[Rfam]
RNA sequence: GGAAGUGUGGCUGAGUGGUUGAAAGCGCCUCCCUGCUAAGGAGGUAGGGGAGCUUAACCUUCCCUCGAGGGUUCGAAUCCCUCCGCUUCCG
Numbered sequence: 001g002g003a004a005g006u007g008u009g010g011c012u013g014a015g016u017g018g019u020u021g022a023a024a025g026c027g028c029c030u031c032c033c034u035g036c037u038a039a040g041g042a043g044g045u046a047g048g049g050g051a052g053c054u055u056a057a058c059c060u061u062c063c064c065u066c067g068a069g070g071g072u073u074c075g076a077a078u079c080c081c082u083c084c085g086c087u088u089c090c091g
Stems, first nucleotide, its partner, number of pairs: 001090007010026003028044005067083005
Dot-bracket structure: (((((((..(((...........))).(((((.......)))))......................(((((.......)))))))))))).
RNA: tRNA